[Rfam]
Nucleotides: 102
Stems, first nucleotide, its partner, number of pairs: 018088001020086006029049001031047005058078007
Number, partner (000 for none) and nucleotide at each position: 001000u002000c003000a004000a005000a006000a007000u008000c009000g010000a011000a012000u013000a014000c015000a016000u017000u018088c019000a020086c021085u022084c023083a024082u025081a026000u027000a028000a029049u030000a031047g032046c033045g034044g035043a036000g037000a038000u039000a040000u041000g042000g043035u044034c045033c046032g047031c048000a049029a050000g051000u052000u053000u054000c055000u056000a057000c058078c059077g060076g061075u062074u063073u064072g065000c066000c067000g068000u069000a070000a071000a072064c073063a074062a075061a076060c077059u078058g079000a080000c081025u082024a083023u084022g085021a086020g087000g088018g089000c090000a091000a092000c093000g094000g095000a096000c097000u098000u099000g100000a101000g102000g
This 102-nucleotide sequence from Sporosarcina sp. BI001-red belongs to the Rfam family "Purine riboswitch aptamer".
NCBI's taxonomy places the organism under Bacteria, Bacillati, Bacillota, Caryophanaceae, Sporosarcina.
It scores 86 bits against the family's covariance model.